[Rfam]
RNA: L17-Actino-Proteobacteria ribosomal protein leader
RNA sequence: GCUCAGCUCGCGUGAACUGACCAACAUCUACUCCGGUACCUGACACGGCCGGGGAGA
Numbered sequence: 001g002c003u004c005a006g007c008u009c010g011c012g013u014g015a016a017c018u019g020a021c022c023a024a025c026a027u028c029u030a031c032u033c034c035g036g037u038a039c040c041u042g043a044c045a046c047g048g049c050c051g052g053g054g055a056g057a
Stems, first nucleotide, its partner, number of pairs: 001022001003020004008015001027057003031054007